[Rfam]
RNA sequence: UGGCUGUAGCUAUAUGAAUAUAUUGAGACGUUUACGUGGCUGGUCGUUGUAAAUCUGUCGACAUAUUUGCUUACCGAGCUUCUUACAUUC
Dot-bracket structure: ........................((((.(((.....(((.(((.((((.........))))..))).))).....))).))))......
Rfam assigns this 90-nucleotide RNA from Anisodus acutangulus to the family "Small nucleolar RNA snoR109". Lineage of the source: Eukaryota > Tracheophyta > Magnoliopsida > asterids > Anisodus. Rfam 15.1 lists 680 matches to the family in 220 species. The family's RNA type in Rfam is H/ACA-box small nucleolar RNA. The family's consensus secondary structure was predicted with WAR.